[Rfam]
RNA sequence: UGGUCGCGAGGCGAUGGAUCUCCGCCUGGGUAAUCCGCCCAAACCGCCGGCCCGGCUGAUGGCUCCUGUGGUGCU
Numbered sequence: 001u002g003g004u005c006g007c008g009a010g011g012c013g014a015u016g017g018a019u020c021u022c023c024g025c026c027u028g029g030g031u032a033a034u035c036c037g038c039c040c041a042a043a044c045c046g047c048c049g050g051c052c053c054g055g056c057u058g059a060u061g062g063c064u065c066c067u068g069u070g071g072u073g074c075u
Stems, first nucleotide, its partner, number of pairs: 010026004016066003020062002046056003